[Rfam]
RNA: Glutamine riboswitch aptamer (glnA leader)
RNA sequence: AUCGUUCAAUCUGUAUUAACAGAUCGGAAGUAGGCUAAAGCUGAAGGAACGCGGA
Dot-bracket structure: ..(((((.(((((......)))))..[.....(((....)))....)))))]...
Numbered sequence: 001a002u003c004g005u006u007c008a009a010u011c012u013g014u015a016u017u018a019a020c021a022g023a024u025c026g027g028a029a030g031u032a033g034g035c036u037a038a039a040g041c042u043g044a045a046g047g048a049a050c051g052c053g054g055a
Stems, first nucleotide, its partner, number of pairs: 003051005009024005027052001033042003